[Rfam]
RNA sequence: AUAUUUACGAAGUAACUGCCGAAGACAGUAGGUGCCGUAAGGCAUAAGGGUCAAAACGCCUACCGAGGAAGACAAGAUUCAUUAGAUUUGAAUUUGUAAACCUCUGUGCUUUGGCGCGGAGGUUUUUUAGCGCAUGA
Numbered sequence: 001a002u003a004u005u006u007a008c009g010a011a012g013u014a015a016c017u018g019c020c021g022a023a024g025a026c027a028g029u030a031g032g033u034g035c036c037g038u039a040a041g042g043c044a045u046a047a048g049g050g051u052c053a054a055a056a057c058g059c060c061u062a063c064c065g066a067g068g069a070a071g072a073c074a075a076g077a078u079u080c081a082u083u084a085g086a087u088u089u090g091a092a093u094u095u096g097u098a099a100a101c102c103u104c105u106g107u108g109c110u111u112u113g114g115c116g117c118g119g120a121g122g123u124u125u126u127u128u129a130g131c132g133c134a135u136g137a
Stems, first nucleotide, its partner, number of pairs: 028063006034043003101122009
The family of this 137-nucleotide sequence from Allocoprococcus comes is "Ribosomal protein L10 leader". The source organism's lineage runs through Bacteria, Bacillota, Lachnospirales, Allocoprococcus and Allocoprococcus comes. This family is a putative r-protein leader autoregulatory structure found in B. subtilis and other low-GC Gram-positive bacteria. It is located in the 5' untranslated regions of mRNAs encoding ribosomal proteins L10 and L12 (rplJ-rplL). The family's RNA type in Rfam is cis-regulatory leader.